[Rfam]
RNA sequence: GGUUCCGGCGGCAUGCGUCCUCCUCCACCUCGCCGCCCGGCCUCACCCGCACGGGUGAACAUGGCCAACUUGGCUGGUAAUAGGAGGGGUUGGGUGCCCUACGCUCGCGGCACGACCUGAUCGCAGACAUGCGACGGCCCCCGCCGGGACGGCAAUCCCACCGCGAGGGCCUGACCACCGGGAAGUAGGAGCUUCCCC
Numbered sequence: 001g002g003u004u005c006c007g008g009c010g011g012c013a014u015g016c017g018u019c020c021u022c023c024u025c026c027a028c029c030u031c032g033c034c035g036c037c038c039g040g041c042c043u044c045a046c047c048c049g050c051a052c053g054g055g056u057g058a059a060c061a062u063g064g065c066c067a068a069c070u071u072g073g074c075u076g077g078u079a080a081u082a083g084g085a086g087g088g089g090u091u092g093g094g095u096g097c098c099c100u101a102c103g104c105u106c107g108c109g110g111c112a113c114g115a116c117c118u119g120a121u122c123g124c125a126g127a128c129a130u131g132c133g134a135c136g137g138c139c140c141c142c143g144c145c146g147g148g149a150c151g152g153c154a155a156u157c158c159c160a161c162c163g164c165g166a167g168g169g170c171c172u173g174a175c176c177a178c179c180g181g182g183a184a185g186u187a188g189g190a191g192c193u194u195c196c197c198c
Base pairs, nucleotide, nucleotide: 007179008178010176043058044057045056046055047054048053073111074110075107076106077105136171137170138169139168140167142165143164144163146159147158148157149156181196182195183194184193185192

Source information:
This 198-nucleotide RNA from Streptomyces inusitatus belongs to the Rfam family "Streptomyces sRNA 4677". From the family's description: Located in the intergenic region between anti-sigma factor SCO4677 gene and a putative regulatory protein gene SCO4676. scr4677 expression requires the SCO4677 activity and scr4677 sRNA itself seem to affect the levels of the SCO4676-associated transcripts. It is annotated as a small RNA. A search with the family's covariance model found it, with a score of 114 bits. The organism belongs to Streptomyces, within Bacteria. For this family Rfam cites "Complex intra-operonic dynamics mediated by a small RNA in Streptomyces coelicolor" (Hindra et al., PLoS One, 2014).